[Rfam]
RNA: Small nucleolar RNA SNORA46
Organism: Buceros rhinoceros
RNA sequence: AGCACUAUUUUUAAACCCAUUGGUGGAAUUUCCUGACCACCGUGGGUUACGCUAUAGUGCAAAAGGAUCUCCUGGCUCUUUAGAGCAUCGCUGACCUUGUUGUGUGCAGCUGAUGCUCCUCCUAAGCUCAGGAACAGAA
Numbered sequence: 001a002g003c004a005c006u007a008u009u010u011u012u013a014a015a016c017c018c019a020u021u022g023g024u025g026g027a028a029u030u031u032c033c034u035g036a037c038c039a040c041c042g043u044g045g046g047u048u049a050c051g052c053u054a055u056a057g058u059g060c061a062a063a064a065g066g067a068u069c070u071c072c073u074g075g076c077u078c079u080u081u082a083g084a085g086c087a088u089c090g091c092u093g094a095c096c097u098u099g100u101u102g103u104g105u106g107c108a109g110c111u112g113a114u115g116c117u118c119c120u121c122c123u124a125a126g127c128u129c130a131g132g133a134a135c136a137g138a139a
Stems, first nucleotide, its partner, number of pairs: 002060007014048004021042006070133004074128004082120001085116003088112001090110002093107001